Notes:
Rfam assigns this 57-nucleotide RNA sequence from Papaver somniferum to the family "Plastid-ndhJ 3UTR RNA". The family's RNA type in Rfam is cis-regulatory element. Taxonomically the source falls in Papaver (Eukaryota, Streptophytina, Tracheophyta, Ranunculales). Plastid ndhJ is a non-coding RNA (ncRNA) present in plastids. It was identified as a short stem-loop motif in the 3 prime untranslate region (3UTR) of ndhJ gene.
[Rfam]
RNA sequence: CCAUAAACUUUGUAUCGCGCACAUUACUUAGAUAAGCUCCCUAAAGUCACGUAGGGG
Numbered sequence: 001c002c003a004u005a006a007a008c009u010u011u012g013u014a015u016c017g018c019g020c021a022c023a024u025u026a027c028u029u030a031g032a033u034a035a036g037c038u039c040c041c042u043a044a045a046g047u048c049a050c051g052u053a054g055g056g057g
Stems, first nucleotide, its partner, number of pairs: 019037002023033003